[Rfam]
RNA: int-alpA RNA
RNA sequence: GCCGCGCCUAGAUCGGCCAAUCGAAAACGGGUUCCCUUACCCGCUGGCGCGGCUCCCUCAUAAGGG
Numbered sequence: 001g002c003c004g005c006g007c008c009u010a011g012a013u014c015g016g017c018c019a020a021u022c023g024a025a026a027a028c029g030g031g032u033u034c035c036c037u038u039a040c041c042c043g044c045u046g047g048c049g050c051g052g053c054u055c056c057c058u059c060a061u062a063a064g065g066g
Stems, first nucleotide, its partner, number of pairs: 001053008011022003028043004034066006